This 79-nucleotide RNA sequence from Mangrovibacillus cuniculi belongs to the Rfam family "c-di-GMP-I riboswitch aptamer". Gene Ontology term of the family: cyclic-di-GMP binding. Lineage of the source: Bacteria > Bacillota > Bacilli > Bacillaceae > Mangrovibacillus.
RNA sequence: AAGACAUACUGGCAAACCCAUGCGAAAGAUGGGGACGCAAAGCCACGGGCCUUCGAAAGGUGGUAGCCGGGUUGCUCAU
Numbered sequence: 001a002a003g004a005c006a007u008a009c010u011g012g013c014a015a016a017c018c019c020a021u022g023c024g025a026a027a028g029a030u031g032g033g034g035a036c037g038c039a040a041a042g043c044c045a046c047g048g049g050c051c052u053u054c055g056a057a058a059g060g061u062g063g064u065a066g067c068c069g070g071g072u073u074g075c076u077c078a079u
Base pairs, nucleotide, nucleotide: 012038013037017033018032019031020030021029023028041073042072043071044070046069047068048067049064050063051062